[Rfam]
RNA: Small nucleolar RNA Z266
Organism: Klebsormidium nitens
RNA sequence: AUAUGGCGAGGAGGAUGAUUCAAUUAGAUGUGUGACGCAGACUUGUCUGCGCUGAACAUACACACUUGAGGCAUAUUCAUUCAUACCGAACUGACUCGCCAUAU
Numbered sequence: 001a002u003a004u005g006g007c008g009a010g011g012a013g014g015a016u017g018a019u020u021c022a023a024u025u026a027g028a029u030g031u032g033u034g035a036c037g038c039a040g041a042c043u044u045g046u047c048u049g050c051g052c053u054g055a056a057c058a059u060a061c062a063c064a065c066u067u068g069a070g071g072c073a074u075a076u077u078c079a080u081u082c083a084u085a086c087c088g089a090a091c092u093g094a095c096u097c098g099c100c101a102u103a104u
Stems, first nucleotide, its partner, number of pairs: 001104010